[Rfam]
RNA sequence: GGUGUUCCUUAUCUAUCGCUAUUAAAUUGGUUUAGUUGGAGCCUGUCUUCCUGCGCUCGUUAUCGCUUACGCUUAAGAACACACGAAGACAGGCUCAUUAUUACGUUGCCGUUUUUCAGCUCCCG
Numbered sequence: 001g002g003u004g005u006u007c008c009u010u011a012u013c014u015a016u017c018g019c020u021a022u023u024a025a026a027u028u029g030g031u032u033u034a035g036u037u038g039g040a041g042c043c044u045g046u047c048u049u050c051c052u053g054c055g056c057u058c059g060u061u062a063u064c065g066c067u068u069a070c071g072c073u074u075a076a077g078a079a080c081a082c083a084c085g086a087a088g089a090c091a092g093g094c095u096c097a098u099u100a101u102u103a104c105g106u107u108g109c110c111g112u113u114u115u116u117c118a119g120c121u122c123c124c125g
Stems, first nucleotide, its partner, number of pairs: 001110004024101001026099001039096009050085001052083002057078002060075001
RNA: tp2
Organism: Acerihabitans arboris